[Rfam]
RNA sequence: AUGGAAGUGAAGAUCCUUUCCCCAGAUGAUCGACUACGAUUAUACUGUGCGCAAAUGUAAUCCCUUUUCGGAGGAUUCAAGCCAGAAAUCUGAUCCAU
Numbered sequence: 001a002u003g004g005a006a007g008u009g010a011a012g013a014u015c016c017u018u019u020c021c022c023c024a025g026a027u028g029a030u031c032g033a034c035u036a037c038g039a040u041u042a043u044a045c046u047g048u049g050c051g052c053a054a055a056u057g058u059a060a061u062c063c064c065u066u067u068u069c070g071g072a073g074g075a076u077u078c079a080a081g082c083c084a085g086a087a088a089u090c091u092g093a094u095c096c097a098u
Stems, first nucleotide, its partner, number of pairs: 001098005
RNA: Small nucleolar RNA Z103